[Rfam]
RNA: Streptomyces-metH RNA
Nucleotides: 119
Stems, first nucleotide, its partner, number of pairs: 059081004064076004084098002087096003
Number, partner (000 for none) and nucleotide at each position: 001000c002000g003000u004000a005000u006000c007000a008000a009000g010000c011000g012000g013000u014000g015000g016000g017000a018000c019000a020000c021000c022000c023000g024000u025000u026000c027000c028000c029000c030000g031000g032000c033000g034000g035000a036000c037000g038000u039000c040000g041000c042000c043000a044000g045000c046000u047000a048000c049000g050000c051000u052000g053000a054000c055000c056000g057000g058000g059081u060080g061079c062078g063000c064076c065075c066074u067073c068000u069000g070000c071000c072000g073067g074066a075065g076064g077000a078062c079061g080060c081059a082000a083000a084098g085097c086000c087096g088095a089094c090000a091000g092000c093000c094089g095088u096087c097085g098084c099000a100000a101000c102000c103000c104000c105000g106000g107000g108000a109000g110000c111000a112000c113000u114000u115000c116000c117000a118000u119000g